[Rfam]
RNA: T-box leader
RNA sequence: GAAAAGGCUAUGAAAAGAAAGAGUAGCAUUUUCGAUUCCAAACAGAAAGAUGCCGGUUGAUGAGAGGCUCGUGGAUAGAAAGUGUGAAUACCUCUUGGAGCUGCGCACCAAAACUUUUUUAAGGAGUAGGCUGUGACGGAACGCACACCGUGAUCAAGUGCAAGGGUAUCGCCAAGGCCGUACCCGACGAGGUAGACAGCGUGAGUUGUCUAUGAACUUAAGGUGGUAACACGAGAUAUACUCUCGUCCUUUUG
Numbered sequence: 001g002a003a004a005a006g007g008c009u010a011u012g013a014a015a016a017g018a019a020a021g022a023g024u025a026g027c028a029u030u031u032u033c034g035a036u037u038c039c040a041a042a043c044a045g046a047a048a049g050a051u052g053c054c055g056g057u058u059g060a061u062g063a064g065a066g067g068c069u070c071g072u073g074g075a076u077a078g079a080a081a082g083u084g085u086g087a088a089u090a091c092c093u094c095u096u097g098g099a100g101c102u103g104c105g106c107a108c109c110a111a112a113a114c115u116u117u118u119u120u121a122a123g124g125a126g127u128a129g130g131c132u133g134u135g136a137c138g139g140a141a142c143g144c145a146c147a148c149c150g151u152g153a154u155c156a157a158g159u160g161c162a163a164g165g166g167u168a169u170c171g172c173c174a175a176g177g178c179c180g181u182a183c184c185c186g187a188c189g190a191g192g193u194a195g196a197c198a199g200c201g202u203g204a205g206u207u208g209u210c211u212a213u214g215a216a217c218u219u220a221a222g223g224u225g226g227u228a229a230c231a232c233g234a235g236a237u238a239u240a241c242u243c244u245c246g247u248c249c250u251u252u253u254g
Stems, first nucleotide, its partner, number of pairs: 007101002015096004026085006038074003052068003104135004109130001137150003192213007220251004231247005